[Rfam]
RNA sequence: ACCACAAACGUGAAUAAUUCCAUGUGGACAGGAGCGGGGAAACCACCGCGGACCUCUAUUAAGCCAGAGUUUCGCAACGGGCAUCCGCCCUCGGGGUGAAGCCACAAACGUGGCCGGGCACAGUGAUCCUCCGCCCGAACCCGACAGCUCACUUCGCAGGCGUCAAUAUGAGAGGAACA
Dot-bracket structure: .((...........................)).((((((....(................................................)(((.....((((....))))..((((.............))))...))).........))))))......................
The record is a 179-nucleotide sequence from Corynebacterium testudinoris, which matches "c-di-AMP riboswitch aptamer (ydaO/yuaA leader)" in Rfam. From the family's description: This family represents a conserved RNA structure found upstream of the ydaO and yuaA genes in Bacillus subtilis and related genes in other bacteria. Gene Ontology terms of the family: regulation of gene expression and cyclic-di-AMP binding. NCBI's taxonomy places the organism under Bacteria, Bacillati, Actinomycetes, Mycobacteriales, Corynebacterium.